[Rfam]
RNA sequence: GUCCUGGCAGCGCGAAAACGCACCACGGCAGGAGCGGGGGACCCACAGGUAAGUCGCCCCGGACCGUUCCUCGGAACGGCCCAGGGCUAGGGGUGAAGCCGCGCCCACAGCGCGGCCGGGCAACUCCAGCCCGAAUCCGACAGCUCACCUCGCAGGCGUGGGAGAGGACCG
Numbered sequence: 001g002u003c004c005u006g007g008c009a010g011c012g013c014g015a016a017a018a019c020g021c022a023c024c025a026c027g028g029c030a031g032g033a034g035c036g037g038g039g040g041a042c043c044c045a046c047a048g049g050u051a052a053g054u055c056g057c058c059c060c061g062g063a064c065c066g067u068u069c070c071u072c073g074g075a076a077c078g079g080c081c082c083a084g085g086g087c088u089a090g091g092g093g094u095g096a097a098g099c100c101g102c103g104c105c106c107a108c109a110g111c112g113c114g115g116c117c118g119g120g121c122a123a124c125u126c127c128a129g130c131c132c133g134a135a136u137c138c139g140a141c142a143g144c145u146c147a148c149c150u151c152g153c154a155g156g157c158g159u160g161g162g163a164g165a166g167g168a169c170c171g
Base pairs, nucleotide, nucleotide: 002033003032004031005030006029034153035152036151037150038149039148044090091138092137093136099115100114101113102112118132119131120130121129

A member of the RNA family "c-di-AMP riboswitch aptamer (ydaO/yuaA leader)" from Streptomyces sp. FH025, 171 nucleotides long.
Rfam describes the family as follows. This family represents a conserved RNA structure found upstream of the ydaO and yuaA genes in Bacillus subtilis and related genes in other bacteria.
NCBI's taxonomy places the organism under Bacteria, Actinomycetota, Actinomycetes, Kitasatosporales, Streptomyces.